[Rfam]
RNA sequence: CCGUCCGGCCCGUGGACGCCCCUGACCGUACGGCCCUGCCCCGGGCUACCCUGGCCGGGUGCGCCUUCCAUGGGAAGCGCAAAGCCGACAGCCGUCGCACUCCAGGGAGCAUCUUCCAUG
Numbered sequence: 001c002c003g004u005c006c007g008g009c010c011c012g013u014g015g016a017c018g019c020c021c022c023u024g025a026c027c028g029u030a031c032g033g034c035c036c037u038g039c040c041c042c043g044g045g046c047u048a049c050c051c052u053g054g055c056c057g058g059g060u061g062c063g064c065c066u067u068c069c070a071u072g073g074g075a076a077g078c079g080c081a082a083a084g085c086c087g088a089c090a091g092c093c094g095u096c097g098c099a100c101u102c103c104a105g106g107g108a109g110c111a112u113c114u115u116c117c118a119u120g
Stems, first nucleotide, its partner, number of pairs: 060081004065077004084098002087096003